[Rfam]
RNA: U8 small nucleolar RNA
Organism: Chinchilla lanigera
RNA sequence: UCGUCAGGUGGGAUAAUCCUUACCUGCGCCUCCAUUUGGAGGCCAGAUAGAAAAUGAUGAUUGGAGCAUCGCAUGACACGUGAUUAGCAUGCUGCAUGAUCAGGACUUGCAGCACCCUGAUUGCUCCUGUCUGAA
Numbered sequence: 001u002c003g004u005c006a007g008g009u010g011g012g013a014u015a016a017u018c019c020u021u022a023c024c025u026g027c028g029c030c031u032c033c034a035u036u037u038g039g040a041g042g043c044c045a046g047a048u049a050g051a052a053a054a055u056g057a058u059g060a061u062u063g064g065a066g067c068a069u070c071g072c073a074u075g076a077c078a079c080g081u082g083a084u085u086a087g088c089a090u091g092c093u094g095c096a097u098g099a100u101c102a103g104g105a106c107u108u109g110c111a112g113c114a115c116c117c118u119g120a121u122u123g124c125u126c127c128u129g130u131c132u133g134a135a
Stems, first nucleotide, its partner, number of pairs: 024046003028043006075092001078090001080088001081086001097123008